[Rfam]
RNA sequence: AAAAAAUGAUGAGAUCUUUAAUUACAAAGCCUUUCGGGUCUGAUGCAUCCGUGAUGAAUUACACAUUGAGACUGAUUUU
Numbered sequence: 001a002a003a004a005a006a007u008g009a010u011g012a013g014a015u016c017u018u019u020a021a022u023u024a025c026a027a028a029g030c031c032u033u034u035c036g037g038g039u040c041u042g043a044u045g046c047a048u049c050c051g052u053g054a055u056g057a058a059u060u061a062c063a064c065a066u067u068g069a070g071a072c073u074g075a076u077u078u079u
Base pairs, nucleotide, nucleotide: 003079004078005077006076

Rfam assigns this 79-nucleotide sequence from Plasmodium ovale to the family "small nucleolar RNA snoR29". The literature on the family includes a 2007 paper in RNA by Chakrabarti et al., "Structural RNAs of known and unknown function identified in malaria parasites by comparative genomics and RNA analysis". It is annotated as a C/D-box small nucleolar RNA. The pairing is the family consensus, mapped onto this sequence. Taxonomically the source falls in Plasmodium ovale (Eukaryota, Sar, Alveolata, Apicomplexa).